[Rfam]
A member of the RNA family "Bacterial large subunit ribosomal RNA" from Halovibrio variabilis, 377 nucleotides of a longer RNA. It scores 2864 bits against the family's covariance model. The base pairs follow the family's consensus structure, which is taken from published work.
RNA sequence: GAUAAAGGGAGUGAAAAACUCCCUCGCCGGAAGACCAAGGGUUUCUGUUCGACGCUAAUCGGAGCAGAGUGAGUCGGCCCCUAAGGCGAGGCCGAAAGGCGUAGUCGAUGGGAAACGGGUCAAUAUUCCCGUACCGGACAUGGUUGCGAUGGGGGGACGAAGAAGGCUAGGUGAGCCAGGCGUUGGUUGUCCUGGUGAAAGUGAGUAGGCUGAGGGUUUAGGCAAAUCCGGACCCUUAAGGCCGAGACACGAAACGAAGACACUACGGUGUUGAAGUCACUGAUGCCACGCUUCCAGGAAAAGCCUCUAAGCUUCAGAUCAUGUGCGACCGUACCCCAAACCGACACAGGUGGUCAGGGAGAGAAUCCCAAGGCGCU
Numbered sequence: 001g002a003u004a005a006a007g008g009g010a011g012u013g014a015a016a017a018a019c020u021c022c023c024u025c026g027c028c029g030g031a032a033g034a035c036c037a038a039g040g041g042u043u044u045c046u047g048u049u050c051g052a053c054g055c056u057a058a059u060c061g062g063a064g065c066a067g068a069g070u071g072a073g074u075c076g077g078c079c080c081c082u083a084a085g086g087c088g089a090g091g092c093c094g095a096a097a098g099g100c101g102u103a104g105u106c107g108a109u110g111g112g113a114a115a116c117g118g119g120u121c122a123a124u125a126u127u128c129c130c131g132u133a134c135c136g137g138a139c140a141u142g143g144u145u146g147c148g149a150u151g152g153g154g155g156g157a158c159g160a161a162g163a164a165g166g167c168u169a170g171g172u173g174a175g176c177c178a179g180g181c182g183u184u185g186g187u188u189g190u191c192c193u194g195g196u197g198a199a200a201g202u203g204a205g206u207a208g209g210c211u212g213a214g215g216g217u218u219u220a221g222g223c224a225a226a227u228c229c230g231g232a233c234c235c236u237u238a239a240g241g242c243c244g245a246g247a248c249a250c251g252a253a254a255c256g257a258a259g260a261c262a263c264u265a266c267g268g269u270g271u272u273g274a275a276g277u278c279a280c281u282g283a284u285g286c287c288a289c290g291c292u293u294c295c296a297g298g299a300a301a302a303g304c305c306u307c308u309a310a311g312c313u314u315c316a317g318a319u320c321a322u323g324u325g326c327g328a329c330c331g332u333a334c335c336c337c338a339a340a341c342c343g344a345c346a347c348a349g350g351u352g353g354u355c356a357g358g359g360a361g362a363g364a365a366u367c368c369c370a371a372g373g374c375g376c377u
Base pairs, nucleotide, nucleotide: 006024007023008022009021010020011019025375026374027373028372033355034354035353036352039335040334044068045067046066047065048064049063053061054060075331076330077329080111081110085106086105087104089102091100092099093098115132116131117130118129119128135327136326138324139323140322141321142320143319144318145317146312147311151307152306153305154304159294160293161292162291165287166286167285170281171280172279173278174277175196176195177194178193179192180191197255201250202249203248208243209242210241213236214235215234216233217232218231219230221229222228259272260271261270262269263268341350342349357369358368359367360366